The family of this 108-nucleotide RNA from Actinocatenispora rupis is "mraW RNA". It scores 72 bits against the family's covariance model. The base pairs follow the family's consensus structure, which is taken from published work. It is annotated as a cis-regulatory element.
[Rfam]
RNA sequence: UGGAUGUCGUGCCGUGAGGUCUCCAGCCGCUCGACGGCUCCUGGUGCUACUUCCCCGGUGCCAGGCGCGAUUGAGCGGAUGGGGACCUGAUGGCACGGAUCGUUGGAG
Numbered sequence: 001u002g003g004a005u006g007u008c009g010u011g012c013c014g015u016g017a018g019g020u021c022u023c024c025a026g027c028c029g030c031u032c033g034a035c036g037g038c039u040c041c042u043g044g045u046g047c048u049a050c051u052u053c054c055c056c057g058g059u060g061c062c063a064g065g066c067g068c069g070a071u072u073g074a075g076c077g078g079a080u081g082g083g084g085a086c087c088u089g090a091u092g093g094c095a096c097g098g099a100u101c102g103u104u105g106g107a108g
Stems, first nucleotide, its partner, number of pairs: 010095006018087002021084005027078008037068002040065008